A member of the RNA family "Selenocysteine transfer RNA" from Desulfallas thermosapovorans, 93 nucleotides long. Rfam links the family to the GO term triplet codon-amino acid adaptor activity. It scores 53 bits against the family's covariance model.

RNA sequence: GGGGAGAAUGGAUCUGGUGGUCCCCGCGGGCUGCAAACCCGUUGGCCUGCCUGCGAUCCAGGCGGGAGUCCGGUUCGAUUCCGACUUCUCCCC
Numbered sequence: 001g002g003g004g005a006g007a008a009u010g011g012a013u014c015u016g017g018u019g020g021u022c023c024c025c026g027c028g029g030g031c032u033g034c035a036a037a038c039c040c041g042u043u044g045g046c047c048u049g050c051c052u053g054c055g056a057u058c059c060a061g062g063c064g065g066g067a068g069u070c071c072g073g074u075u076c077g078a079u080u081c082c083g084a085c086u087u088c089u090c091c092c093c
Base pairs, nucleotide, nucleotide: 001090002089003088004087005086006085010023011022012021013020014019025044026042027041028040029039030038046066047065048064049063050062069084071083072082073081